[Rfam]
RNA sequence: AUUAUCUGGGGAUCUUGUUAAAAAGCAGAUUUUUGUUCAGAAGUCUAUGGUGAGGCCUGAGAUUCUGUAUUUCUAACAAGCUCUCAAGUGAUUCCAA
Numbered sequence: 001a002u003u004a005u006c007u008g009g010g011g012a013u014c015u016u017g018u019u020a021a022a023a024a025g026c027a028g029a030u031u032u033u034u035g036u037u038c039a040g041a042a043g044u045c046u047a048u049g050g051u052g053a054g055g056c057c058u059g060a061g062a063u064u065c066u067g068u069a070u071u072u073c074u075a076a077c078a079a080g081c082u083c084u085c086a087a088g089u090g091a092u093u094c095c096a097a
Stems, first nucleotide, its partner, number of pairs: 003090003009084003014080007021072003025068005031062005